[Rfam]
RNA sequence: CGUAAUCUACCCUGUAGAUCCGGGCUUUUGUAGAAAAGGAGUAGAUCAGAAGCUCGUCUCUACAGGUAUCUUACGG
Numbered sequence: 001c002g003u004a005a006u007c008u009a010c011c012c013u014g015u016a017g018a019u020c021c022g023g024g025c026u027u028u029u030g031u032a033g034a035a036a037a038g039g040a041g042u043a044g045a046u047c048a049g050a051a052g053c054u055c056g057u058c059u060c061u062a063c064a065g066g067u068a069u070c071u072u073a074c075g076g
Stems, first nucleotide, its partner, number of pairs: 002074004010066002016061003021056010
A member of the RNA family "mir-10 microRNA precursor family" from Ladona fulva, 76 nucleotides long.
The literature on the family includes a 2001 paper in Science by Lee and Ambros, "An extensive class of small RNAs in Caenorhabditis elegans".
The base pairs follow the family's consensus structure, which was predicted with PFOLD.